[Rfam]
RNA sequence: ACUUUCCUUGUCUUGGGGUGAUGCGGGCUGAUCAAUGAGCGUAUAGCGAGACCAGCCCUGCUAACACCAUACCAACACAUCUCGCAUCACCUGGACUUGUUUUGUCCAGGCUACGGUGCAAUUUUUGGAACC
Numbered sequence: 001a002c003u004u005u006c007c008u009u010g011u012c013u014u015g016g017g018g019u020g021a022u023g024c025g026g027g028c029u030g031a032u033c034a035a036u037g038a039g040c041g042u043a044u045a046g047c048g049a050g051a052c053c054a055g056c057c058c059u060g061c062u063a064a065c066a067c068c069a070u071a072c073c074a075a076c077a078c079a080u081c082u083c084g085c086a087u088c089a090c091c092u093g094g095a096c097u098u099g100u101u102u103u104g105u106c107c108a109g110g111c112u113a114c115g116g117u118g119c120a121a122u123u124u125u126u127g128g129a130a131c132c
Base pairs, nucleotide, nucleotide: 006018007017008016009015023061024060025059026058027056028055029054030053032051033050039047040046084119085118086117087116088115090110091109092108093107094106095105
RNA: U4atac minor spliceosomal RNA